A member of the RNA family "Small nucleolar RNA snoR99" from Zea mays, 93 nucleotides long.
A search with the family's covariance model found it, with a score of 59 bits.
Rfam 15.1 lists 733 matches to the family in 222 species.
The family's RNA type in Rfam is H/ACA-box small nucleolar RNA.
Pairs were carried over by alignment from the consensus structure, which was predicted with WAR.
A reference for the family is Marker et al. (2002), "Experimental RNomics: identification of 140 candidates for small non-messenger RNAs in the plant Arabidopsis thaliana", Curr Biol.
RNA sequence: GUGCAUGCAGGAUGAAAAGGUCCCUGACAUGUACCCUAUUCACUUUGUCAGUUGAUAUUUUGUUUUCAGCUGAUCAUGAAGGGUGGGAAAUUU
Numbered sequence: 001g002u003g004c005a006u007g008c009a010g011g012a013u014g015a016a017a018a019g020g021u022c023c024c025u026g027a028c029a030u031g032u033a034c035c036c037u038a039u040u041c042a043c044u045u046u047g048u049c050a051g052u053u054g055a056u057a058u059u060u061u062g063u064u065u066u067c068a069g070c071u072g073a074u075c076a077u078g079a080a081g082g083g084u085g086g087g088a089a090a091u092u093u
Base pairs, nucleotide, nucleotide: 030087032085033084034083035082047074048073049072050071051070052069053068054067